[Rfam]
RNA sequence: CUACAGUCAAUUAAGCCAACAUUGCUCUUUUCCCCAUGGCGGCUGGGUAUGCAAUUGUUGCCAACAGCAGCCUCCCAGGUAGUGUAUGCAGCCUGCUGCUUGCAUGGAUUGGCCUAAGGCACCUUGGAGACAGCU
Numbered sequence: 001c002u003a004c005a006g007u008c009a010a011u012u013a014a015g016c017c018a019a020c021a022u023u024g025c026u027c028u029u030u031u032c033c034c035c036a037u038g039g040c041g042g043c044u045g046g047g048u049a050u051g052c053a054a055u056u057g058u059u060g061c062c063a064a065c066a067g068c069a070g071c072c073u074c075c076c077a078g079g080u081a082g083u084g085u086a087u088g089c090a091g092c093c094u095g096c097u098g099c100u101u102g103c104a105u106g107g108a109u110u111g112g113c114c115u116a117a118g119g120c121a122c123c124u125u126g127g128a129g130a131c132a133g134c135u
Stems, first nucleotide, its partner, number of pairs: 002053001004051002019048002022045001025042002028039001078123003089111003093107002